The family of this 57-nucleotide RNA from Cellulomonas fimi is "Actino-pnp RNA". Rfam classes the family as a cis-regulatory element.
RNA sequence: CCCGGUCCUCGGUAGUGGUUCUCGGAGAGUCUCCGCGGACCUCGAUCGAAGACCGCC
Numbered sequence: 001c002c003c004g005g006u007c008c009u010c011g012g013u014a015g016u017g018g019u020u021c022u023c024g025g026a027g028a029g030u031c032u033c034c035g036c037g038g039a040c041c042u043c044g045a046u047c048g049a050a051g052a053c054c055g056c057c
Base pairs, nucleotide, nucleotide: 003055004054005053006052007051009049010048011047012046013045017041018040019039020038021037023035024034025033026032027031